[Rfam]
RNA sequence: GGAUUCCGUCGCGACUGGCGUGAGGUGGAUAACCACCGGGGAGCGGCACCUGUGUCACACGGACCGCACGCCUGGGUCCGGCGC
Numbered sequence: 001g002g003a004u005u006c007c008g009u010c011g012c013g014a015c016u017g018g019c020g021u022g023a024g025g026u027g028g029a030u031a032a033c034c035a036c037c038g039g040g041g042a043g044c045g046g047c048a049c050c051u052g053u054g055u056c057a058c059a060c061g062g063a064c065c066g067c068a069c070g071c072c073u074g075g076g077u078c079c080g081g082c083g084c
Stems, first nucleotide, its partner, number of pairs: 008047005015040002017072005025036004061079005

ZMP/ZTP riboswitch aptamer (pfl RNA motif): an 84-nucleotide RNA from Galactobacter valiniphilus.
Taxonomically the source falls in Galactobacter (Bacteria, Bacillati, Actinomycetes, Micrococcales).
Gene Ontology terms of the family: regulation of purine nucleotide biosynthetic process and one-carbon metabolic process.